[Rfam]
RNA sequence: AGAUGUGAGGGCGAUCUGGCUGUGACAUCUGUCACCCCAUUGAUCACCAGGAUUGAUUCUGCUGAUCUGGCUGGCUAAGUGGGUGUCCCCUUCCUCCCUUACCGCUCCAUGUGCGUCCCUCCCAAAGCUGCGCGCUCGGCCAAAUAGGACGACCUUCUCUGACAGCGAUGAGCCAUUCAUCGGUCAAAGGGUAUAUAGUAGCUGUGCUCCCCUGCUAGAACCUCCAAACAAGCUGAAGGUCCGUUUGUAGGGGAAUGUAGGGUAGUCAAGCUUCCAGGACUGCAGACACAUCCAAGUGAGGCGCUGCAUGGGGCAGUCUGCCAUUGCUU
Number, nucleotide and partner (000 for none) at each position: 001a000002g107003a106004u000005g102006u101007g100008a099009g098010g097011g096012c000013g093014a092015u000016c000017u000018g090019g089020c000021u000022g000023u000024g087025a086026c085027a084028u083029c082030u081031g080032u079033c000034a000035c074036c073037c070038c069039a068040u000041u000042g067043a066044u065045c064046a000047c061048c000049a000050g000051g000052a000053u000054u000055g000056a000057u000058u000059c000060u000061g047062c000063u000064g045065a044066u043067c042068u039069g038070g037071c000072u000073g036074g035075c000076u000077a000078a000079g032080u031081g030082g029083g028084u027085g026086u025087c024088c000089c019090c018091u000092u014093c013094c000095u000096c011097c010098c009099u008100u007101a006102c005103c000104g000105c000106u003107c002108c000109a000110u000111g000112u000113g000114c000115g000116u171117c170118c000119c167120u000121c165122c139123c138124a000125a136126a000127g135128c134129u000130g000131c000132g000133c000134g128135c127136u125137c000138g123139g122140c000141c161142a160143a000144a000145u000146a000147g158148g157149a156150c000151g000152a000153c000154c000155u000156u149157c148158u147159c000160u142161g141162a000163c000164a000165g121166c000167g119168a000169u000170g117171a116172g000173c000174c000175a000176u000177u000178c000179a000180u000181c000182g000183g000184u000185c000186a000187a000188a000189g000190g000191g000192u000193a000194u000195a000196u000197a000198g000199u000200a000201g271202c270203u269204g000205u000206g000207c265208u264209c000210c262211c261212c260213u259214g258215c257216u000217a000218g000219a000220a000221c000222c253223u252224c251225c250226a000227a000228a248229c247230a246231a245232g244233c000234u000235g000236a000237a000238g000239g000240u000241c000242c000243g000244u232245u231246u230247g229248u228249a000250g225251g224252g223253g222254a000255a000256u000257g215258u214259a213260g212261g211262g210263u000264a208265g207266u000267c000268a000269a203270g202271c201272u000273u000274c000275c000276a000277g000278g000279a000280c000281u000282g000283c000284a000285g000286a000287c000288a000289c000290a000291u000292c000293c000294a329295a328296g327297u000298g324299a000300g322301g321302c320303g317304c316305u315306g314307c313308a000309u000310g000311g000312g000313g307314c306315a305316g304317u303318c000319u000320g302321c301322c300323a000324u298325u000326g000327c296328u295329u294

The family of this 329-nucleotide RNA from Aramus guarauna is "7SK RNA". Clan: 7SK clan. By type it is a non-coding RNA gene. On this family, see Blencowe, Curr Biol 2002: "Transcription: surprising role for an elusive small nuclear RNA". The base pairs follow the family's consensus structure, which is taken from published work.